[Rfam]
RNA sequence: AGCCACAGGAUCGGGAGAAUCCGGGGGCGACCCCGGUGCCGAAGGAGCAACCGCCCCGGUAAACUCUCAGGCGCAAGGACCGUCCUGUUUCG
Numbered sequence: 001a002g003c004c005a006c007a008g009g010a011u012c013g014g015g016a017g018a019a020u021c022c023g024g025g026g027g028c029g030a031c032c033c034c035g036g037u038g039c040c041g042a043a044g045g046a047g048c049a050a051c052c053g054c055c056c057c058g059g060u061a062a063a064c065u066c067u068c069a070g071g072c073g074c075a076a077g078g079a080c081c082g083u084c085c086u087g088u089u090u091c092g
Base pairs, nucleotide, nucleotide: 006087007086008085009084010083012082013081014080021036022035023034024033038072039071040070041068042067045066046065047064051059052058
Glycine riboswitch aptamer: a 92-nucleotide RNA from Cereibacter sphaeroides. A search with the family's covariance model found it, with a score of 61 bits. Its family is annotated with glycine biosynthetic process in the Gene Ontology.